Source information: The record is a 97-nucleotide RNA from Chrysochloris asiatica, which matches "mir-544 microRNA precursor family" in Rfam. The match comes from Rfam's covariance-model search (68 bits). Gene Ontology terms of the family: RISC complex and miRNA-mediated post-transcriptional gene silencing. Lineage of the source: Eukaryota > Sarcopterygii > Theria > Chrysochlorinae > Chrysochloris.
RNA sequence: AUCUCUCAGGAAUCUUGGCAAAAUGCAGAUUCUGAGUCAAUCAUCUUGAGUGGAGUCUAAGAGUUUGCAUUUUUGACAGGUUCCCAGGGGAUGCUUA
Numbered sequence: 001a002u003c004u005c006u007c008a009g010g011a012a013u014c015u016u017g018g019c020a021a022a023a024u025g026c027a028g029a030u031u032c033u034g035a036g037u038c039a040a041u042c043a044u045c046u047u048g049a050g051u052g053g054a055g056u057c058u059a060a061g062a063g064u065u066u067g068c069a070u071u072u073u074u075g076a077c078a079g080g081u082u083c084c085c086a087g088g089g090g091a092u093g094c095u096u097a
Stems, first nucleotide, its partner, number of pairs: 003090003009084003014080004019075002021072003025068005031062003
Dot-bracket structure: ..(((...(((..((((.(((((.(((((.(((..........................))).))))).))).)).)))).)))...))).......
The family's consensus secondary structure was predicted with RNAalifold.